[Rfam]
RNA sequence: GCUGGUCACGGCCAGUAUAAACAGACAUUAAGCCGUGAGCGUCUCCUGUUCUGUGAACGGGAGGGUUGUA
Numbered sequence: 001g002c003u004g005g006u007c008a009c010g011g012c013c014a015g016u017a018u019a020a021a022c023a024g025a026c027a028u029u030a031a032g033c034c035g036u037g038a039g040c041g042u043c044u045c046c047u048g049u050u051c052u053g054u055g056a057a058c059g060g061g062a063g064g065g066u067u068g069u070a
Stems, first nucleotide, its partner, number of pairs: 001016004006038006025069003032040001042064008
The family of this 70-nucleotide RNA is "Pistol ribozyme". The base pairs follow the family's consensus structure, which is taken from published work. It is one of the family's seed sequences.